[Rfam]
RNA sequence: UGUAGUGCUGUGAUGAGGCUAUUUUCGUGGACUAGAGUUUCUGAUCUGGGUACAAUUCCCGGUAUCUGAUUAAAUACCCUUGGCUGUCUGAGCACUGUU
Numbered sequence: 001u002g003u004a005g006u007g008c009u010g011u012g013a014u015g016a017g018g019c020u021a022u023u024u025u026c027g028u029g030g031a032c033u034a035g036a037g038u039u040u041c042u043g044a045u046c047u048g049g050g051u052a053c054a055a056u057u058c059c060c061g062g063u064a065u066c067u068g069a070u071u072a073a074a075u076a077c078c079c080u081u082g083g084c085u086g087u088c089u090g091a092g093c094a095c096u097g098u099u
Base pairs, nucleotide, nucleotide: 002098003097004096005095006094007093008092040069041068045064046062047061048060049059050058
Shown here is a 99-nucleotide sequence from Cucurbita maxima, a member of the family "Small nucleolar RNA Z157/R69/R10". Rfam 15.1 lists 836 matches to the family in 232 species. The base pairs follow the family's consensus structure, which was predicted with PFOLD. A reference for the family is Chen et al. (2003), "The high diversity of snoRNAs in plants: identification and comparative study of 120 snoRNA genes from Oryza sativa", Nucleic Acids Res.